[Rfam]
RNA sequence: GCCACGGAUUCAGGAGAGUGCCGCGCAUCCUCACCCGAUGCCGGCCGCCGAAGGCGCAAGCUCCCAUACUCGCUCAGGCCCCGUACUGGAUCCGCCAC
Dot-bracket structure: .....((((((((......((((..................)))).(((((..(((...(......)...))))).)))......)))))))).....
Notes: A member of the RNA family "Glycine riboswitch aptamer" from Roseateles sp. DAIF2, 98 nucleotides long. The pairing is the family consensus, mapped onto this sequence. This family represents the bacterial glycine riboswitch. Glycine riboswitches usually consist of two metabolite-binding aptamers domains with similar structures in tandem. Taxonomically the source falls in Roseateles (Bacteria, Pseudomonadati, Pseudomonadota, Burkholderiales).